[Rfam]
RNA sequence: CAUUAGGUUGGUGCAGAAGUAAUCGCGGUUUUUGACAUUAAAAGUAAUGUCAAAAACCGCGAUUACUUCUGCACCAACCUAAUA
Numbered sequence: 001c002a003u004u005a006g007g008u009u010g011g012u013g014c015a016g017a018a019g020u021a022a023u024c025g026c027g028g029u030u031u032u033u034g035a036c037a038u039u040a041a042a043a044g045u046a047a048u049g050u051c052a053a054a055a056a057c058c059g060c061g062a063u064u065a066c067u068u069c070u071g072c073a074c075c076a077a078c079c080u081a082a083u084a
Stems, first nucleotide, its partner, number of pairs: 002083039

Shown here is an 84-nucleotide sequence from Pan troglodytes, a member of the family "mir-548 microRNA precursor family". The match comes from Rfam's covariance-model search (102 bits). Pairs were carried over by alignment from the consensus structure, which was predicted with WAR.